[Rfam]
Rfam assigns this 124-nucleotide sequence from Trinickia caryophylli to the family "TPP riboswitch aptamer (THI element)". Lineage of the source: Bacteria > Pseudomonadati > Burkholderiales > Burkholderiaceae > Trinickia. From the family's description: Vitamin B(1) in its active form thiamin pyrophosphate (TPP) is an essential coenzyme that is synthesised by coupling of pyrimidine and thiazole moieties in bacteria.

RNA sequence: GCGACGAAACAGGGGUGCUUCGCAAGAGGCGAGCAUGGCGCAGGCCAUAUCGCGGCGAGGCUGAGAGAGUCCCUUCGCACCCGAUCCGGAUAAUACCGGCGCGGGAAGUUUCCGGAACCCGCGC
Numbered sequence: 001g002c003g004a005c006g007a008a009a010c011a012g013g014g015g016u017g018c019u020u021c022g023c024a025a026g027a028g029g030c031g032a033g034c035a036u037g038g039c040g041c042a043g044g045c046c047a048u049a050u051c052g053c054g055g056c057g058a059g060g061c062u063g064a065g066a067g068a069g070u071c072c073c074u075u076c077g078c079a080c081c082c083g084a085u086c087c088g089g090a091u092a093a094u095a096c097c098g099g100c101g102c103g104g105g106a107a108g109u110u111u112c113c114g115g116a117a118c119c120c121g122c123g124c
Stems, first nucleotide, its partner, number of pairs: 006112005011074004016068001017061007080105004086099004